Rfam assigns this 102-nucleotide RNA from Neobacillus bataviensis to the family "Purine riboswitch aptamer". The source organism's lineage runs through Bacteria, Bacillati, Bacilli, Bacillaceae and Neobacillus bataviensis. The literature on the family includes a 2003 paper in Cell by Mandal et al., "Riboswitches Control Fundamental Biochemical Pathways in Bacillus subtilis and Other Bacteria". Gene Ontology term of the family: purine nucleobase biosynthetic process. The match comes from Rfam's covariance-model search (86 bits).
[Rfam]
RNA sequence: AAUUCAAUAGAACGUUUUCUUCAUAUAUCCUCGAAAAUAUGGUUCGAGAGUCUCUACCGGGCUGCCAUAAAUGGCCUGACUAUGAAGGCAGAGUUUUUUCUG
Numbered sequence: 001a002a003u004u005c006a007a008u009a010g011a012a013c014g015u016u017u018u019c020u021u022c023a024u025a026u027a028u029c030c031u032c033g034a035a036a037a038u039a040u041g042g043u044u045c046g047a048g049a050g051u052c053u054c055u056a057c058c059g060g061g062c063u064g065c066c067a068u069a070a071a072u073g074g075c076c077u078g079a080c081u082a083u084g085a086a087g088g089c090a091g092a093g094u095u096u097u098u099u100c101u102g
Stems, first nucleotide, its partner, number of pairs: 018088008030048006058078007